[Rfam]
MIR394 microRNA precursor family: a 100-nucleotide RNA sequence from Juglans regia. The base pairs follow the family's consensus structure, which was predicted with WAR. The family has 19 seed sequences and 724 matches in Rfam 15.1.
RNA sequence: UUAACAGAGUUUAUUGGCAUUCUGUCCACCUCCCUUCAAUAGAAAACCUAGUCCUCUCUCUCUCAUGGAGGUGGGCAUACUGCCAACUGAGCUCUGUUGG
Numbered sequence: 001u002u003a004a005c006a007g008a009g010u011u012u013a014u015u016g017g018c019a020u021u022c023u024g025u026c027c028a029c030c031u032c033c034c035u036u037c038a039a040u041a042g043a044a045a046a047c048c049u050a051g052u053c054c055u056c057u058c059u060c061u062c063u064c065a066u067g068g069a070g071g072u073g074g075g076c077a078u079a080c081u082g083c084c085a086a087c088u089g090a091g092c093u094c095u096g097u098u099g100g
Base pairs, nucleotide, nucleotide: 011090014086015085016084017083018082019081023077024076025075026074027073028072029071030070031069032068033067
Rfam links the family to the GO terms RISC complex and miRNA-mediated post-transcriptional gene silencing.